[Rfam]
RNA sequence: AAGAACCUCGAGUCAAUAAAGACCGAGGAGAUUGACUUAGGAACAAA
Numbered sequence: 001a002a003g004a005a006c007c008u009c010g011a012g013u014c015a016a017u018a019a020a021g022a023c024c025g026a027g028g029a030g031a032u033u034g035a036c037u038u039a040g041g042a043a044c045a046a047a
Base pairs, nucleotide, nucleotide: 007041008040010038011037012036013035014034015033016032017031
RNA: Plastid-rpl16 group II-D1 intron